This 89-nucleotide RNA from Chryseobacterium sp. Leaf394 belongs to the Rfam family "TPP riboswitch aptamer (THI element)".
RNA sequence: AAUAAAUACACGGGGUGCCGAAAGGCUGAGAUUAUACCCGAUGACCUGAUUUGGAUAAUGCCAACGUAGGGAUGUCUGCUUAAAAUAUU
Numbered sequence: 001a002a003u004a005a006a007u008a009c010a011c012g013g014g015g016u017g018c019c020g021a022a023a024g025g026c027u028g029a030g031a032u033u034a035u036a037c038c039c040g041a042u043g044a045c046c047u048g049a050u051u052u053g054g055a056u057a058a059u060g061c062c063a064a065c066g067u068a069g070g071g072a073u074g075u076c077u078g079c080u081u082a083a084a085a086u087a088u089u
Stems, first nucleotide, its partner, number of pairs: 006077001008075003011040004016034001017026003045070004051064004

Notes:
Gene Ontology term of the family: thiamine pyrophosphate binding. Rfam describes the family as follows. Vitamin B(1) in its active form thiamin pyrophosphate (TPP) is an essential coenzyme that is synthesised by coupling of pyrimidine and thiazole moieties in bacteria. The previously detected thiamin-regulatory element, thi box was extended, resulting in a new, highly conserved RNA secondary structure, the THI element, which is widely distributed in eubacteria and also occurs in some archaea. Analysis of operon structures identified a large number of new candidate thiamin-regulated genes, mostly transporters, in various prokaryotic organisms. The THI element is a riboswitch that directly binds to TPP to regulate gene expression through a variety of mechanisms in archaea, bacteria and eukaryotes. through a variety of mechanisms in archaea, bacteria and eukaryotes.